[Rfam]
RNA sequence: GUUGAAUAUUCGCUGAAUUUCCCGCAAGGGAAAACGGGGGAACCAAAUUGGCGAAAGCUGCCAACGGGGUGAAUCGGUCCAGGCUAAACCAGCCGGAUCGUAGGGCUACCACAGCCCGAAUCCGCCAGCUAACCUCGUAAGCAACGUGGGAUAAUGA
Numbered sequence: 001g002u003u004g005a006a007u008a009u010u011c012g013c014u015g016a017a018u019u020u021c022c023c024g025c026a027a028g029g030g031a032a033a034a035c036g037g038g039g040g041a042a043c044c045a046a047a048u049u050g051g052c053g054a055a056a057g058c059u060g061c062c063a064a065c066g067g068g069g070u071g072a073a074u075c076g077g078u079c080c081a082g083g084c085u086a087a088a089c090c091a092g093c094c095g096g097a098u099c100g101u102a103g104g105g106c107u108a109c110c111a112c113a114g115c116c117c118g119a120a121u122c123c124g125c126c127a128g129c130u131a132a133c134c135u136c137g138u139a140a141g142c143a144a145c146g147u148g149g150g151a152u153a154a155u156g157a
Stems, first nucleotide, its partner, number of pairs: 012142003018033005034138006044066001067123003075100006103117004
RNA: c-di-AMP riboswitch aptamer (ydaO/yuaA leader)
Organism: Paenibacillus sp. NFR01